[Rfam]
RNA sequence: CAUUCUAGAUCGCUUAAUUCCUGUGUUUUGGAAGCGGAGGAUCCACUAAGGCCGAUAUUCGGCUAGGGGUGAAAUCUUGUUUUCUGCAAGAUGGGGCUACUCUCAUGGUCCUAAUCCGACAGCUAACUUCGCAAGCGUGUUAAGAGAGGAUGA
Numbered sequence: 001c002a003u004u005c006u007a008g009a010u011c012g013c014u015u016a017a018u019u020c021c022u023g024u025g026u027u028u029u030g031g032a033a034g035c036g037g038a039g040g041a042u043c044c045a046c047u048a049a050g051g052c053c054g055a056u057a058u059u060c061g062g063c064u065a066g067g068g069g070u071g072a073a074a075u076c077u078u079g080u081u082u083u084c085u086g087c088a089a090g091a092u093g094g095g096g097c098u099a100c101u102c103u104c105a106u107g108g109u110c111c112u113a114a115u116c117c118g119a120c121a122g123c124u125a126a127c128u129u130c131g132c133a134a135g136c137g138u139g140u141u142a143a144g145a146g147a148g149g150a151u152g153a
Base pairs, nucleotide, nucleotide: 011137012136013135014134018033019032020031034132035131036130037129038128039127044066067117068116069115075091076090077089078088094111095110096109097108
A member of the RNA family "c-di-AMP riboswitch aptamer (ydaO/yuaA leader)" from Jeotgalibacillus soli, 153 nucleotides long.
About the family: This family represents a conserved RNA structure found upstream of the ydaO and yuaA genes in Bacillus subtilis and related genes in other bacteria.
The source organism's lineage runs through Bacteria, Bacillati, Bacillota, Caryophanales and Jeotgalibacillus.
It scores 95 bits against the family's covariance model.